Description: This 434-nucleotide part of an RNA from Hanseniaspora uvarum belongs to the Rfam family "Eukaryotic large subunit ribosomal RNA". Rfam links the family to the GO terms ribosome and structural constituent of ribosome.
RNA sequence: GGUAGUAGCAAAUAUUCAAAUGAGAUCUUUGAAGACUGAAGUGGGGAAAGGUUCCACGUCAACAGCAGUUGGACGUGGGUUAGUCGAUCCUAAGAGAUGGGGAAGCUCCGUUUCAAAUGCUUAAUUUUUUAAGCAACCAUCGAAAGGGAAUCCGGUUAAUAUUCCGGAACUUGGAUGUAGAUUUUACACGGUAACGUAACUGAGUGUGGAGACGUCGGCAUUAGCCCUGGAAGGAGUUAUCUUUUCUUUUUAACAGUUUAUCACCCUGGAAUUGGUUUAUCCGGAGAUAGGGUCUUAUGACUGGAAGAGCCUGAUUUUACGUCAGGUCCGGUGCGCUGAUGACGGCCCUUGAAAAUCCACAGGAAGGAAUAAUUUUUACGCCAAGUCGUACUGAUAACCGCAGCAGGUCUCCAAGGUGAACAGCCUCUAGUUGA
Numbered sequence: 001g002g003u004a005g006u007a008g009c010a011a012a013u014a015u016u017c018a019a020a021u022g023a024g025a026u027c028u029u030u031g032a033a034g035a036c037u038g039a040a041g042u043g044g045g046g047a048a049a050g051g052u053u054c055c056a057c058g059u060c061a062a063c064a065g066c067a068g069u070u071g072g073a074c075g076u077g078g079g080u081u082a083g084u085c086g087a088u089c090c091u092a093a094g095a096g097a098u099g100g101g102g103a104a105g106c107u108c109c110g111u112u113u114c115a116a117a118u119g120c121u122u123a124a125u126u127u128u129u130u131a132a133g134c135a136a137c138c139a140u141c142g143a144a145a146g147g148g149a150a151u152c153c154g155g156u157u158a159a160u161a162u163u164c165c166g167g168a169a170c171u172u173g174g175a176u177g178u179a180g181a182u183u184u185u186a187c188a189c190g191g192u193a194a195c196g197u198a199a200c201u202g203a204g205u206g207u208g209g210a211g212a213c214g215u216c217g218g219c220a221u222u223a224g225c226c227c228u229g230g231a232a233g234g235a236g237u238u239a240u241c242u243u244u245u246c247u248u249u250u251u252a253a254c255a256g257u258u259u260a261u262c263a264c265c266c267u268g269g270a271a272u273u274g275g276u277u278u279a280u281c282c283g284g285a286g287a288u289a290g291g292g293u294c295u296u297a298u299g300a301c302u303g304g305a306a307g308a309g310c311c312u313g314a315u316u317u318u319a320c321g322u323c324a325g326g327u328c329c330g331g332u333g334c335g336c337u338g339a340u341g342a343c344g345g346c347c348c349u350u351g352a353a354a355a356u357c358c359a360c361a362g363g364a365a366g367g368a369a370u371a372a373u374u375u376u377u378a379c380g381c382c383a384a385g386u387c388g389u390a391c392u393g394a395u396a397a398c399c400g401c402a403g404c405a406g407g408u409c410u411c412c413a414a415g416g417u418g419a420a421c422a423g424c425c426u427c428u429a430g431u432u433g434a
Stems, first nucleotide, its partner, number of pairs: 015033006034432004043412004049392002054078006063071002085388003089147002094141002096112003100109003119134003151168005171384004176380005181374001188197003205361006214346004219341007227331003230250006254303005263293006272284004310326006398407002414426004